[Rfam]
RNA sequence: GGGUUGGCUGUAGCUCAGCGGUUACUUCGUUUCGCUUAGCAAACUGUGUUUACACCAGUAGGUGUUCGAGACCCGCGGGCGAUAUCCGACCUUUUU
Numbered sequence: 001g002g003g004u005u006g007g008c009u010g011u012a013g014c015u016c017a018g019c020g021g022u023u024a025c026u027u028c029g030u031u032u033c034g035c036u037u038a039g040c041a042a043a044c045u046g047u048g049u050u051u052a053c054a055c056c057a058g059u060a061g062g063u064g065u066u067c068g069a070g071a072c073c074c075g076c077g078g079g080c081g082a083u084a085u086c087c088g089a090c091c092u093u094u095u096u
Stems, first nucleotide, its partner, number of pairs: 002091006013080004018076004026070004